[Rfam]
The record is a 69-nucleotide sequence, which matches "Transposase-2 RNA" in Rfam. The family's RNA type in Rfam is small RNA. Pairs were carried over by alignment from the consensus structure, which is taken from published work.
RNA sequence: GAAACGCGAAUCAAGCAGACGUGGAAACGUCGUGAGACUUGGAGCUGGCCUUGGUAACAAGGCCAUGCG
Numbered sequence: 001g002a003a004a005c006g007c008g009a010a011u012c013a014a015g016c017a018g019a020c021g022u023g024g025a026a027a028c029g030u031c032g033u034g035a036g037a038c039u040u041g042g043a044g045c046u047g048g049c050c051u052u053g054g055u056a057a058c059a060a061g062g063c064c065a066u067g068c069g
Stems, first nucleotide, its partner, number of pairs: 011042005018031005046065008